[Rfam]
RNA sequence: UGGAGGACUGAGAAGGUAAGACAGUUAAAACUUUAUGCUAUAUUUUACUGGUUAUAGCCUCCAAAAUUAUAAUAGUGCAACAGUAACUCAUGUUCCUCUCCUCACAUGAUGGAAAGUGGUGCUGCAUUUG
Numbered sequence: 001u002g003g004a005g006g007a008c009u010g011a012g013a014a015g016g017u018a019a020g021a022c023a024g025u026u027a028a029a030a031c032u033u034u035a036u037g038c039u040a041u042a043u044u045u046u047a048c049u050g051g052u053u054a055u056a057g058c059c060u061c062c063a064a065a066a067u068u069a070u071a072a073u074a075g076u077g078c079a080a081c082a083g084u085a086a087c088u089c090a091u092g093u094u095c096c097u098c099u100c101c102u103c104a105c106a107u108g109a110u111g112g113a114a115a116g117u118g119g120u121g122c123u124g125c126a127u128u129u130g
Stems, first nucleotide, its partner, number of pairs: 002062005015049004019043001021041001023039003082123002085120001087118001093114004099109002
RNA: Small nucleolar RNA SNORA47
Organism: Rhinoptilus africanus